[Rfam]
RNA sequence: AAAUGUCAGGGUCAGAAGGUCUAAGCCCACAUGAGCUUGCUCAUAAGUGGGUGAAAGACCUUAGGACCCGCCCCGAUAUGAGCAUAAAAGUGGGGGAAACCCCACGAUAUGCGAAUAUUGGGCAGGAUUGUGGGAGUGCGCAGCACGGAACAAUCCGCAGACAUUU
Numbered sequence: 001a002a003a004u005g006u007c008a009g010g011g012u013c014a015g016a017a018g019g020u021c022u023a024a025g026c027c028c029a030c031a032u033g034a035g036c037u038u039g040c041u042c043a044u045a046a047g048u049g050g051g052u053g054a055a056a057g058a059c060c061u062u063a064g065g066a067c068c069c070g071c072c073c074c075g076a077u078a079u080g081a082g083c084a085u086a087a088a089a090g091u092g093g094g095g096g097a098a099a100c101c102c103c104a105c106g107a108u109a110u111g112c113g114a115a116u117a118u119u120g121g122g123c124a125g126g127a128u129u130g131u132g133g134g135a136g137u138g139c140g141c142a143g144c145a146c147g148g149a150a151c152a153a154u155c156c157g158c159a160g161a162c163a164u165u166u
Base pairs, nucleotide, nucleotide: 001166002165003164004163005162006161007160010068011067012066013065016062017061018060019059020058021057022056026051027050028049029048030047031044032043033042034041035040072122073121074120075119076118077117078116079115082112083111084110085109090105091104092103093102094101095100125156126155127154128153129152130151131150136146137145138144139143
This 166-nucleotide RNA from Roseburia sp. CAG:303 belongs to the Rfam family "Clostridiales-1 RNA". Rfam 15.1 lists 1,172 matches to the family in 137 species. Pairs were carried over by alignment from the consensus structure, which is taken from published work. Lineage of the source: Bacteria > Bacillati > Clostridia > Lachnospiraceae > Roseburia. The match comes from Rfam's covariance-model search (138 bits). Rfam classes the family as a small RNA.